Source information
A member of the RNA family "transfer-messenger RNA" from Treponema parvum, 356 nucleotides long. Taxonomically the source falls in Treponema (Bacteria, Spirochaetia, Treponematales, Treponemataceae). The match comes from Rfam's covariance-model search (155 bits). Rfam classes the family as a non-coding RNA gene. Bacterial tmRNA, also known as 10Sa RNA or SsrA, is named for its dual tRNA and mRNA-like properties. Its role is to liberate the mRNA from a stalled ribosome. To accomplish this part of the tmRNA is used as a reading frame that ends in a translation stop signal. The broken mRNA is replaced in the ribosome by the tmRNA and translation of the tmRNA leads to addition of a proteolysis tag to the incomplete protein enabling recognition by a protease. Recently a number of permuted tmRNA genes have been found encoded in two parts. tmRNAs have been identified in eubacteria and some chloroplasts but are absent from archaeal and eukaryote nuclear genomes.
RNA sequence: GGGGAUGCACCGGUUUCGACGGGUACGGGAGAGCCUGUGCUGCAAGUAAGGUUACGCCUGUCCUUUAAACAGACGAAAAAAAUUAACUGCAGAAGACAAUUCUCAGUUAGCUCUCGCCGCGUAAGCUGCGUUUGAGCCGGAAACCUGUUUGCGCUGUUCCGAGCAUUCGGGAUUUCUGUCACAAAUCGGGGCUUGCCGCAUAAUGUGUUCGGUCUUUAUGCGGGACUUACAAUCGAAAUACGGAAACGACGCUUGCGGUGCUGCCACCGUUUCCCGACAAUCACCUCGCACCGCUAAACUUGUAGAGGUACUUGUUUUACGUAUUCGGACGGGGGUUCAAUUCCCCCCAUCUCCAA
Numbered sequence: 001g002g003g004g005a006u007g008c009a010c011c012g013g014u015u016u017c018g019a020c021g022g023g024u025a026c027g028g029g030a031g032a033g034c035c036u037g038u039g040c041u042g043c044a045a046g047u048a049a050g051g052u053u054a055c056g057c058c059u060g061u062c063c064u065u066u067a068a069a070c071a072g073a074c075g076a077a078a079a080a081a082a083u084u085a086a087c088u089g090c091a092g093a094a095g096a097c098a099a100u101u102c103u104c105a106g107u108u109a110g111c112u113c114u115c116g117c118c119g120c121g122u123a124a125g126c127u128g129c130g131u132u133u134g135a136g137c138c139g140g141a142a143a144c145c146u147g148u149u150u151g152c153g154c155u156g157u158u159c160c161g162a163g164c165a166u167u168c169g170g171g172a173u174u175u176c177u178g179u180c181a182c183a184a185a186u187c188g189g190g191g192c193u194u195g196c197c198g199c200a201u202a203a204u205g206u207g208u209u210c211g212g213u214c215u216u217u218a219u220g221c222g223g224g225a226c227u228u229a230c231a232a233u234c235g236a237a238a239u240a241c242g243g244a245a246a247c248g249a250c251g252c253u254u255g256c257g258g259u260g261c262u263g264c265c266a267c268c269g270u271u272u273c274c275c276g277a278c279a280a281u282c283a284c285c286u287c288g289c290a291c292c293g294c295u296a297a298a299c300u301u302g303u304a305g306a307g308g309u310a311c312u313u314g315u316u317u318u319a320c321g322u323a324u325u326c327g328g329a330c331g332g333g334g335g336u337u338c339a340a341u342u343c344c345c346c347c348c349a350u351c352u353c354c355a356a
Stems, first nucleotide, its partner, number of pairs: 001354007020327008030318005037311005043302005048065004053077001055075002058072002112135002116131001118130003138178006144171004150165003156192007196223008207239003212234001242274007251264002255294004331347005